RNA sequence: GCCGAGCUUUGUAACGGAAGCUUGUCACCUGAGUGGGGGCAUUAAGAUGAAGGGACAUUUGUUCAGCUCUUUGAGACGGAUCCCGUGUGGCUUUGCCAUGGCUUGCCCGUUCCAAGCCAGGAGUUGUGCUAUGGGACCUCGGUGAAAACUGUUGGUGUCAUGGCUCCUAGAGUGAAGGGUACUGCGUGAGGCUGGUUUCACAGAGCAGCGAAGAUCUUCCUCUCUUGGCAGUGGGAGGAUUACAGAUAUUUACUCAUAACUCAGAGAUUUCCAGGUUAAAAGUUUUUUCAGACAUUACUAACGAAUUA
Numbered sequence: 001g002c003c004g005a006g007c008u009u010u011g012u013a014a015c016g017g018a019a020g021c022u023u024g025u026c027a028c029c030u031g032a033g034u035g036g037g038g039g040c041a042u043u044a045a046g047a048u049g050a051a052g053g054g055a056c057a058u059u060u061g062u063u064c065a066g067c068u069c070u071u072u073g074a075g076a077c078g079g080a081u082c083c084c085g086u087g088u089g090g091c092u093u094u095g096c097c098a099u100g101g102c103u104u105g106c107c108c109g110u111u112c113c114a115a116g117c118c119a120g121g122a123g124u125u126g127u128g129c130u131a132u133g134g135g136a137c138c139u140c141g142g143u144g145a146a147a148a149c150u151g152u153u154g155g156u157g158u159c160a161u162g163g164c165u166c167c168u169a170g171a172g173u174g175a176a177g178g179g180u181a182c183u184g185c186g187u188g189a190g191g192c193u194g195g196u197u198u199c200a201c202a203g204a205g206c207a208g209c210g211a212a213g214a215u216c217u218u219c220c221u222c223u224c225u226u227g228g229c230a231g232u233g234g235g236a237g238g239a240u241u242a243c244a245g246a247u248a249u250u251u252a253c254u255c256a257u258a259a260c261u262c263a264g265a266g267a268u269u270u271c272c273a274g275g276u277u278a279a280a281a282g283u284u285u286u287u288u289c290a291g292a293c294a295u296u297a298c299u300a301a302c303g304a305a306u307u308a
Base pairs, nucleotide, nucleotide: 001040002039003038004023005022006021007020008019009018010017028037029036030035043308044307045306048303049302052299053298055296058292059291060290061288065285066284069282070281071280072279074277075276077274078269079268081266083264085262088256089255090254092252098250101247103245104244105243107238108237110236111235112234113233114232116229117228118227119226120225121224122223123222126166128164129163130162131161132160133159134158136156137155138154140151141150142149143148167172174219175218176217177216178215183212185210186209187208192203193202194201